[Rfam]
The family of this 206-nucleotide RNA from Shigella dysenteriae is "Gammaproteobacterial sRNA STnc100". Pairs were carried over by alignment from the consensus structure, which was predicted with CMfinder. Rfam's curators put it in the seed alignment.
RNA sequence: CCCGGAUGAGAAUUUGUUAGAAAAAACUGCAUGGUGAAUCCCCCUGAGCGGAGGGGCGACUGGUGACGGUAUAAUCUCUGAUUAUCAAAACGAGAAUGACGCGGGUUUAGUGGCACCGGGCUGAACUCACCGGGAGGCACCCGGCACCAUACAAUGGCACAUCGCGCCACUCUCCAGCCCCUCUCCGGAGGGGCUUUCUUAUGGAC
Numbered sequence: 001c002c003c004g005g006a007u008g009a010g011a012a013u014u015u016g017u018u019a020g021a022a023a024a025a026a027c028u029g030c031a032u033g034g035u036g037a038a039u040c041c042c043c044c045u046g047a048g049c050g051g052a053g054g055g056g057c058g059a060c061u062g063g064u065g066a067c068g069g070u071a072u073a074a075u076c077u078c079u080g081a082u083u084a085u086c087a088a089a090a091c092g093a094g095a096a097u098g099a100c101g102c103g104g105g106u107u108u109a110g111u112g113g114c115a116c117c118g119g120g121c122u123g124a125a126c127u128c129a130c131c132g133g134g135a136g137g138c139a140c141c142c143g144g145c146a147c148c149a150u151a152c153a154a155u156g157g158c159a160c161a162u163c164g165c166g167c168c169a170c171u172c173u174c175c176a177g178c179c180c181c182u183c184u185c186c187g188g189a190g191g192g193g194c195u196u197u198c199u200u201a202u203g204g205a206c
Base pairs, nucleotide, nucleotide: 015159016158029152031150032149033148034147035146036145041056042055043054044053045052064092065091097101103128104127105126106125108123109122110121130144131143132142133141134140164206167203176195177194178193179192180191181190182189